[Rfam]
RNA sequence: GAUACUCCCUUAUAGCCACAGUCCGAGCGUUAAAAGCGUUGCAGGCAAUGGGUAGGGCCGCGUGAGAACCACGCGGGGGUGAAAGUCCCGUGG
Numbered sequence: 001g002a003u004a005c006u007c008c009c010u011u012a013u014a015g016c017c018a019c020a021g022u023c024c025g026a027g028c029g030u031u032a033a034a035a036g037c038g039u040u041g042c043a044g045g046c047a048a049u050g051g052g053u054a055g056g057g058c059c060g061c062g063u064g065a066g067a068a069c070c071a072c073g074c075g076g077g078g079g080u081g082a083a084a085g086u087c088c089c090g091u092g093g
Stems, first nucleotide, its partner, number of pairs: 007090001008057006058076003062072003077089003